The record is a 90-nucleotide RNA sequence from Brevundimonas subvibrioides, which matches "Glycine riboswitch aptamer" in Rfam.
RNA sequence: CGCUGGAAAGUCACCCCUUCGCGGGGGUGCGCCGACGGAGCAAGGCACGGAUACGUCCGGGCCGGAAUCUCUCAGGUUUCACAGACAGCG
Numbered sequence: 001c002g003c004u005g006g007a008a009a010g011u012c013a014c015c016c017c018u019u020c021g022c023g024g025g026g027g028u029g030c031g032c033c034g035a036c037g038g039a040g041c042a043a044g045g046c047a048c049g050g051a052u053a054c055g056u057c058c059g060g061g062c063c064g065g066a067a068u069c070u071c072u073c074a075g076g077u078u079u080c081a082c083a084g085a086c087a088g089c090g
Base pairs, nucleotide, nucleotide: 001090002089003088004087005086012029013028014027015026031077032076033075034073035072038071039070040069045063
Source information: This family represents the bacterial glycine riboswitch.